[Rfam]
RNA sequence: AAGCGUUACGGCUCUUUUGCAAUUUCUAUAGCAGGCUCUGCGGGGUUCGCCGGAAAGCCCCC
Numbered sequence: 001a002a003g004c005g006u007u008a009c010g011g012c013u014c015u016u017u018u019g020c021a022a023u024u025u026c027u028a029u030a031g032c033a034g035g036c037u038c039u040g041c042g043g044g045g046u047u048c049g050c051c052g053g054a055a056a057g058c059c060c061c062c
Base pairs, nucleotide, nucleotide: 034059035058036057037056039054041052042051043050

This 62-nucleotide RNA from Callithrix jacchus belongs to the Rfam family "U7 small nuclear RNA". The source organism's lineage runs through Eukaryota, Amniota, Euarchontoglires, Platyrrhini and Callithrix. The family has 49 seed sequences and 10,439 matches in Rfam 15.1. The match comes from Rfam's covariance-model search (40 bits). The literature on the family includes a 1994 paper in Nucleic Acids Res by Spycher et al., "3' end processing of mouse histone pre-mRNA: evidence for additional base-pairing between U7 snRNA and pre-mRNA".